RNA sequence: CCAACUUUGCAGCCUUUUGGCUAAGAUUAAGCGUCAGUUUGACCCCUGACAUACUCUCCAGCAAAGAGCAACCUGCCUUAAGUGGGUUUUGGGCACUGGGAGGUGGGCAUGGGGCUUGCUCCAUCCACUCCAUGCAUUGGCCUGGUAUUGCCUUGCUGCCAGGAGCCGUGGCAAGCAC
Numbered sequence: 001c002c003a004a005c006u007u008u009g010c011a012g013c014c015u016u017u018u019g020g021c022u023a024a025g026a027u028u029a030a031g032c033g034u035c036a037g038u039u040u041g042a043c044c045c046c047u048g049a050c051a052u053a054c055u056c057u058c059c060a061g062c063a064a065a066g067a068g069c070a071a072c073c074u075g076c077c078u079u080a081a082g083u084g085g086g087u088u089u090u091g092g093g094c095a096c097u098g099g100g101a102g103g104u105g106g107g108c109a110u111g112g113g114g115c116u117u118g119c120u121c122c123a124u125c126c127a128c129u130c131c132a133u134g135c136a137u138u139g140g141c142c143u144g145g146u147a148u149u150g151c152c153u154u155g156c157u158g159c160c161a162g163g164a165g166c167c168g169u170g171g172c173a174a175g176c177a178c
Stems, first nucleotide, its partner, number of pairs: 007026002011022004033050005054068004099131004105125002111122004135170003139166001141163006
RNA: U2 spliceosomal RNA